[Rfam]
RNA: Glycine riboswitch aptamer
Organism: Streptomyces laurentii
RNA sequence: CGAAUCCGCGCGGGAGAGUCCCGGGGCAUCCGCACACACCGUGCGCGUGCGCCGGGCGCCGAAGGAGCAAGUACCUCCCUUGAAUCUCUCAGGCCCCGUACCGCGCGGACGAG
Numbered sequence: 001c002g003a004a005u006c007c008g009c010g011c012g013g014g015a016g017a018g019u020c021c022c023g024g025g026g027c028a029u030c031c032g033c034a035c036a037c038a039c040c041g042u043g044c045g046c047g048u049g050c051g052c053c054g055g056g057c058g059c060c061g062a063a064g065g066a067g068c069a070a071g072u073a074c075c076u077c078c079c080u081u082g083a084a085u086c087u088c089u090c091a092g093g094c095c096c097c098g099u100a101c102c103g104c105g106c107g108g109a110c111g112a113g
Stems, first nucleotide, its partner, number of pairs: 006108008020056004058094003061090002065088003071081001